[Rfam]
RNA: Alphaproteobacterial ar14
RNA sequence: AGUUUUCGGAGCCGCGCCCUCCUCCUCCCAGCGCGCUUCGAUCUGGACCAGCGAUCCUCCUCCUCCCAAUCGCUGGUCACCAUGAUGACGCCCACCGGAUCCUCCUCCCCCGGUGGGCGUUUUCU
Numbered sequence: 001a002g003u004u005u006u007c008g009g010a011g012c013c014g015c016g017c018c019c020u021c022c023u024c025c026u027c028c029c030a031g032c033g034c035g036c037u038u039c040g041a042u043c044u045g046g047a048c049c050a051g052c053g054a055u056c057c058u059c060c061u062c063c064u065c066c067c068a069a070u071c072g073c074u075g076g077u078c079a080c081c082a083u084g085a086u087g088a089c090g091c092c093c094a095c096c097g098g099a100u101c102c103u104c105c106u107c108c109c110c111c112g113g114u115g116g117g118c119g120u121u122u123u124c125u
Base pairs, nucleotide, nucleotide: 007040008039009038011036012035014034015033016032017031046078047077048076049075050074051073052072053071054070055069088120089119090118091117092116093115094114095113096112097111098110